[Rfam]
RNA sequence: GUCCUGGAAGCGCGAAAACGCACCACGGCAGGAGCGGGGGACCCACAGGUAAGUCGCCCCGGACCGCUCUCCGGAACGGUCCAGGGCUAGGGGUGAAGCCGUGCUCACCGCACGGCCGGGCAACUCCAGCCCGAAUCCGACAGCUCACCUCGCAGGCGUGGGAGAGGACCA
Numbered sequence: 001g002u003c004c005u006g007g008a009a010g011c012g013c014g015a016a017a018a019c020g021c022a023c024c025a026c027g028g029c030a031g032g033a034g035c036g037g038g039g040g041a042c043c044c045a046c047a048g049g050u051a052a053g054u055c056g057c058c059c060c061g062g063a064c065c066g067c068u069c070u071c072c073g074g075a076a077c078g079g080u081c082c083a084g085g086g087c088u089a090g091g092g093g094u095g096a097a098g099c100c101g102u103g104c105u106c107a108c109c110g111c112a113c114g115g116c117c118g119g120g121c122a123a124c125u126c127c128a129g130c131c132c133g134a135a136u137c138c139g140a141c142a143g144c145u146c147a148c149c150u151c152g153c154a155g156g157c158g159u160g161g162g163a164g165a166g167g168a169c170c171a
Base pairs, nucleotide, nucleotide: 011158012157013156019032034153035152036151037150038149039148044090091138092137093136099115100114101113102112118132119131120130121129

The record is a 171-nucleotide RNA sequence, which matches "c-di-AMP riboswitch aptamer (ydaO/yuaA leader)" in Rfam.
It scores 56 bits against the family's covariance model.
The literature on the family includes a 2004 paper in Proc Natl Acad Sci U S A by Barrick et al., "New RNA motifs suggest an expanded scope for riboswitches in bacterial genetic control".
Its family is annotated with regulation of gene expression and cyclic-di-AMP binding in the Gene Ontology.